Nucleotides: 087
Stems, first nucleotide, its partner, number of pairs: 002086025
Number, partner (000 for none) and nucleotide at each position: 001000a002086c003085c004084g005083c006082u007081g008080a009079g010078c011077c012076a013075u014074c015073u016072c017071u018070c019069c020068a021067g022066c023065c024064c025063c026062g027000c028000a029000a030000g031000a032000c033000c034000u035000u036000a037000u038000c039000u040000u041000a042000a043000a044000g045000a046000a047000a048000a049000a050000a051000a052000u053000a054000a055000a056000c057000c058000c059000c060000c061000a062026c063025g064024g065023g066022g067021c068020u069019g070018g071017a072016g073015a074014g075013a076012u077011g078010g079009c080008u081007c082006a083005g084004u085003g086002g087000u

The record is an 87-nucleotide RNA sequence from Mus musculus, which matches "mir-3473 microRNA precursor family" in Rfam.
Its family is annotated with miRNA-mediated post-transcriptional gene silencing, cellular response to mechanical stimulus and RISC complex in the Gene Ontology.
The source organism's lineage runs through Eukaryota, Craniata, Vertebrata, Eutheria and Mus.
A search with the family's covariance model found it, with a score of 73 bits.